[Rfam]
RNA sequence: GAGCUGUGAAGAAAUAUAUAAAGAAAUCUGAGAUUCUGUUGAAGUCAUAAGAUCCAACUCUGAGCUCGCUGCC
Dot-bracket structure: ((((...........................................................))))......
Numbered sequence: 001g002a003g004c005u006g007u008g009a010a011g012a013a014a015u016a017u018a019u020a021a022a023g024a025a026a027u028c029u030g031a032g033a034u035u036c037u038g039u040u041g042a043a044g045u046c047a048u049a050a051g052a053u054c055c056a057a058c059u060c061u062g063a064g065c066u067c068g069c070u071g072c073c
Stems, first nucleotide, its partner, number of pairs: 001067004
The record is a 73-nucleotide RNA sequence from Gallus gallus, which matches "Small nucleolar RNA SNORD19" in Rfam. Clan: SNORD19 clan. On this family, see Huttenhofer et al., EMBO J 2001: "RNomics: an experimental approach that identifies 201 candidates for novel, small, non-messenger RNAs in mouse".